Notes: The family of this 90-nucleotide sequence from Acetobacterium bakii is "pan motif". The organism belongs to Acetobacterium, within Bacteria. It scores 61 bits against the family's covariance model. It is annotated as a cis-regulatory element.
RNA sequence: AAGGCGGUAUCCCAGUGAACUGCACUUUUGUAAUAACAAAUAAAAAUUAAACUAAAAAUCUGCUUUGAUCCUUUGGACAGAGACUGAAUA
Numbered sequence: 001a002a003g004g005c006g007g008u009a010u011c012c013c014a015g016u017g018a019a020c021u022g023c024a025c026u027u028u029u030g031u032a033a034u035a036a037c038a039a040a041u042a043a044a045a046a047u048u049a050a051a052c053u054a055a056a057a058a059u060c061u062g063c064u065u066u067g068a069u070c071c072u073u074u075g076g077a078c079a080g081a082g083a084c085u086g087a088a089u090a
Base pairs, nucleotide, nucleotide: 001027002026003025004023005022006021007020008019010018011017060086062084063082064081065080066079067078069077070076071075